[Rfam]
Rfam assigns this 114-nucleotide RNA from Lachnospiraceae bacterium C7 to the family "FMN riboswitch aptamer (RFN element)". It scores 124 bits against the family's covariance model.
RNA sequence: UAAAUUCUUCGGGGCAGGGUGCAAUUCCCUACCGGCGGUAAAGCCCGCGAGCCAAUAGGUUGAUUUGGUGAGAUUCCAAAGCCGACAGUAUAGUCUGGAUGAGAGAAGAAAUAU
Number, nucleotide and partner (000 for none) at each position: 001u000002a000003a112004a000005u110006u109007c108008u107009u106010c105011g000012g000013g000014g000015c000016a000017g029018g028019g027020u000021g000022c000023a000024a000025u000026u000027c019028c018029c017030u000031a094032c093033c084034g083035g048036c047037g046038g045039u000040a000041a000042a000043g082044c081045c038046c037047g036048c035049g000050a000051g060052c059053c058054a000055a000056u000057a000058g053059g052060u051061u000062g000063a000064u080065u079066u078067g077068g076069u000070g000071a000072g000073a000074u000075u000076c068077c067078a066079a065080a064081g044082c043083c034084g033085a000086c097087a096088g095089u000090a000091u000092a000093g032094u031095c088096u087097g086098g000099a000100u000101g000102a000103g000104a000105g010106a009107a008108g007109a006110a005111a000112u003113a000114u000